Rfam assigns this 248-nucleotide RNA from Thiocapsa roseopersicina to the family "Group II catalytic intron D1-D4-6". The pairing is the family consensus, mapped onto this sequence. Group II introns are found in rRNA, tRNA and mRNA of organelles in fungi, plants and protists, and also in mRNA in bacteria.
RNA sequence: GAACUCCCGCCUGGGUAAUCGCUAGCCACGAGCCCGGUAUCGAGCCUUGCGGCGCGGCUGGUAACAGCCGCGUCGAUGCGUAGGCACGACAGCAGGCGAGGUGCAAAGGUAACGGGUGGAGCCGACCUUGAAGGUGUUGAGCCCCGAAACAUUUGGUCGGGAGUGCCGACGGGUUUGUCCCUCCGGCAGGCAACAGUCCGUGUCGCGUCAUGGCGAGUGGCACGGGUACUCCCCGGGGUCCGAGGCCG
Number, nucleotide and partner (000 for none) at each position: 001g000002a000003a000004c000005u000006c000007c000008c000009g000010c000011c000012u036013g035014g034015g033016u000017a000018a000019u031020c030021g029022c000023u216024a000025g214026c213027c000028a000029c021030g020031a019032g000033c015034c014035c013036g012037g000038u091039a000040u089041c088042g000043a000044g085045c084046c083047u082048u080049g079050c075051g074052g073053c072054g071055c070056g069057g068058c067059u066060g065061g000062u000063a000064a000065c060066a059067g058068c057069c056070g055071c054072g053073u052074c051075g050076a000077u000078g000079c049080g048081u000082a047083g046084g045085c044086a000087c000088g041089a040090c000091a038092g000093c000094a000095g000096g000097c000098g000099a000100g000101g000102u000103g000104c000105a000106a000107a000108g000109g000110u000111a000112a000113c000114g000115g000116g000117u000118g000119g000120a000121g000122c000123c000124g000125a000126c000127c000128u000129u000130g000131a000132a000133g000134g000135u000136g000137u000138u242139g240140a000141g239142c238143c237144c236145c235146g234147a000148a000149a000150c000151a000152u000153u000154u000155g000156g000157u000158c000159g233160g232161g231162a230163g229164u228165g191166c190167c189168g000169a000170c185171g184172g183173g182174u000175u000176u000177g000178u000179c000180c000181c000182u173183c172184c171185g170186g000187c000188a000189g167190g166191c165192a000193a000194c000195a000196g227197u226198c225199c224200g223201u222202g221203u220204c219205g218206c217207g000208u000209c000210a000211u000212g000213g026214c025215g000216a023217g206218u205219g204220g203221c202222a201223c200224g199225g198226g197227u196228a164229c163230u162231c161232c160233c159234c146235g145236g144237g143238g142239u141240c139241c000242g138243a000244g000245g000246c000247c000248g000